[Rfam]
RNA sequence: AAGUGGCUGUGAAGUGGGAGGUUGCUGACACACCGAAGAGCGUUGUCAUUAACCGUGUGUUAGGUUUUCCCAUGGAGCAAGUCUAUACGCAGAUUAUAGGCGA
Numbered sequence: 001a002a003g004u005g006g007c008u009g010u011g012a013a014g015u016g017g018g019a020g021g022u023u024g025c026u027g028a029c030a031c032a033c034c035g036a037a038g039a040g041c042g043u044u045g046u047c048a049u050u051a052a053c054c055g056u057g058u059g060u061u062a063g064g065u066u067u068u069c070c071c072a073u074g075g076a077g078c079a080a081g082u083c084u085a086u087a088c089g090c091a092g093a094u095u096a097u098a099g100g101c102g103a
Stems, first nucleotide, its partner, number of pairs: 014073003018069004025063009081101007

The record is a 103-nucleotide sequence from Anaeroplasma bactoclasticum, which matches "S10-Clostridia ribosomal protein leader" in Rfam.
On this family, see Eckert and Weinberg, BMC Microbiol 2020: "Discovery of 20 novel ribosomal leader candidates in bacteria and archaea".
NCBI's taxonomy places the organism under Bacteria, Bacillati, Mollicutes, Anaeroplasmataceae, Anaeroplasma.
By type it is a cis-regulatory leader.